The record is a 192-nucleotide sequence from Anser brachyrhynchus, which matches "U2 spliceosomal RNA" in Rfam. The base pairs follow the family's consensus structure, which is taken from published work. Rfam's curators write: U2 is a small nuclear RNA (snRNA) component of the spliceosome (involved in pre-mRNA splicing). It scores 163 bits against the family's covariance model.

RNA sequence: AUGGGACUCUCGGCCUGUUGGCUAAGAUCAAGUGUAGUAUCUGUUCUUAUCAGUUUCAUAUCUGAUACGUCCUUAAUGAGAGGACUUUAUAUUAAACAGAUUUUUGGUCUUGGGAGUUGGAUGUGGAGCUUGCUCCCUCCACUCCACGCAUUGUCCUGGUAUUGUAGUACUUCCAGAAAUGGUGCACCUCCU
Numbered sequence: 001a002u003g004g005g006a007c008u009c010u011c012g013g014c015c016u017g018u019u020g021g022c023u024a025a026g027a028u029c030a031a032g033u034g035u036a037g038u039a040u041c042u043g044u045u046c047u048u049a050u051c052a053g054u055u056u057c058a059u060a061u062c063u064g065a066u067a068c069g070u071c072c073u074u075a076a077u078g079a080g081a082g083g084a085c086u087u088u089a090u091a092u093u094a095a096a097c098a099g100a101u102u103u104u105u106g107g108u109c110u111u112g113g114g115a116g117u118u119g120g121a122u123g124u125g126g127a128g129c130u131u132g133c134u135c136c137c138u139c140c141a142c143u144c145c146a147c148g149c150a151u152u153g154u155c156c157u158g159g160u161a162u163u164g165u166a167g168u169a170c171u172u173c174c175a176g177a178a179a180u181g182g183u184g185c186a187c188c189u190c191c192u
Base pairs, nucleotide, nucleotide: 008027009026010025012023013022014021015020048067049066050065051064052063053062069085070084071083072082073081074080113145114144115143116142117141119139120138125136126135127134128133148185149184150183151182152181153180156176157175158174159173